[Rfam]
RNA: nhaA-I RNA
RNA sequence: GGGUCCAGAAACAUUUCGCGUUUCUGGAGGUUUUCUUGUUAGCCGGGCCGCUAACC
Numbered sequence: 001g002g003g004u005c006c007a008g009a010a011a012c013a014u015u016u017c018g019c020g021u022u023u024c025u026g027g028a029g030g031u032u033u034u035c036u037u038g039u040u041a042g043c044c045g046g047g048c049c050g051c052u053a054a055c056c
Stems, first nucleotide, its partner, number of pairs: 005027008038055006